[Rfam]
RNA sequence: GCCUAAUCCCGGCCGCGUCCCCGUGCGGCAGGGAGCCGGGGACCCAACCGGCGCGCGGGCCGAGCCCACGCGAGCCGUCGUUCCUGGGGUGAAUCCGAGAGGGAGGCAUGGAGGUUCUCCAUGAUCGCGAACUCGGUAGGGCUGCUCCGGCCCGAACCCGUCAGCUAACCCGGUAAGCGGCCGAGGAGAGGAGCU
Numbered sequence: 001g002c003c004u005a006a007u008c009c010c011g012g013c014c015g016c017g018u019c020c021c022c023g024u025g026c027g028g029c030a031g032g033g034a035g036c037c038g039g040g041g042a043c044c045c046a047a048c049c050g051g052c053g054c055g056c057g058g059g060c061c062g063a064g065c066c067c068a069c070g071c072g073a074g075c076c077g078u079c080g081u082u083c084c085u086g087g088g089g090u091g092a093a094u095c096c097g098a099g100a101g102g103g104a105g106g107c108a109u110g111g112a113g114g115u116u117c118u119c120c121a122u123g124a125u126c127g128c129g130a131a132c133u134c135g136g137u138a139g140g141g142c143u144g145c146u147c148c149g150g151c152c153c154g155a156a157c158c159c160g161u162c163a164g165c166u167a168a169c170c171c172g173g174u175a176a177g178c179g180g181c182c183g184a185g186g187a188g189a190g191g192a193g194c195u
Stems, first nucleotide, its partner, number of pairs: 001178002007034003035174006045086002087159003095136004139153004